[Rfam]
Rfam assigns this 245-nucleotide RNA from Sphingomonas sp. Leaf231 to the family "permuted transfer-messenger RNA". NCBI's taxonomy places the organism under Bacteria, Pseudomonadota, Alphaproteobacteria, Sphingomonadales, Sphingomonas. Bacterial tmRNA, also known as 10Sa RNA or SsrA, is named for its dual tRNA and mRNA-like properties. Its role is to liberate the mRNA from a stalled ribosome. To accomplish this part of the tmRNA is used as a reading frame that ends in a translation stop signal. The broken mRNA is replaced in the ribosome by the tmRNA and translation of the tmRNA leads to addition of a proteolysis tag to the incomplete protein enabling recognition by a protease. The family's consensus secondary structure is taken from published work.
RNA sequence: GGCGAUAAACUGCGGCGUAAAAUAGACGCAGCGGACCCGGGGGCGGUACCCGGCGGCUCCACCACCGCAGCUGUGCCGGACGACGAUAUGCAUCACGCGUGCCGCCGUCCGAUCCAGCUACGCUGACGGGGCCGAACUAGGAUCGACGUGUGUUGAAAGGCGCUGUUUUCGCUCGGAAUGGGACCACCGCAACGGCCCAUUACACAAGUGCCAACGAUAACGAAGCACUCGCGAUUGCGGCGUAA
Number, nucleotide and partner (000 for none) at each position: 001g173002g172003c171004g170005a169006u000007a000008a000009a000010c000011u000012g000013c000014g000015g163016c162017g161018u160019a000020a000021a000022a000023u000024a000025g000026a000027c152028g151029c150030a000031g149032c148033g147034g000035a000036c000037c053038c052039g051040g050041g049042g000043g000044c000045g000046g000047u000048a000049c041050c040051c039052g038053g037054c134055g133056g132057c131058u130059c129060c128061a000062c000063c000064a000065c000066c000067g000068c000069a000070g000071c000072u000073g000074u000075g000076c000077c000078g000079g000080a000081c000082g000083a000084c000085g000086a000087u000088a000089u000090g000091c000092a000093u000094c000095a000096c000097g000098c000099g000100u000101g000102c000103c000104g000105c000106c000107g000108u000109c000110c000111g000112a000113u000114c000115c000116a000117g000118c000119u000120a000121c000122g000123c000124u000125g000126a000127c000128g060129g059130g058131g057132c056133c055134g054135a000136a000137c000138u000139a000140g000141g000142a000143u000144c000145g000146a000147c033148g032149u031150g029151u028152g027153u000154u000155g000156a000157a000158a000159g000160g018161c017162g016163c015164u000165g000166u000167u000168u000169u005170c004171g003172c002173u001174c189175g188176g187177a000178a000179u000180g000181g000182g000183a000184c000185c000186a000187c176188c175189g174190c000191a000192a000193c000194g000195g000196c000197c000198c000199a000200u000201u000202a000203c000204a000205c000206a000207a000208g000209u000210g000211c000212c000213a000214a000215c000216g000217a000218u000219a000220a000221c000222g000223a000224a000225g000226c000227a000228c000229u000230c000231g000232c000233g000234a000235u000236u000237g000238c000239g000240g000241c000242g000243u000244a000245a000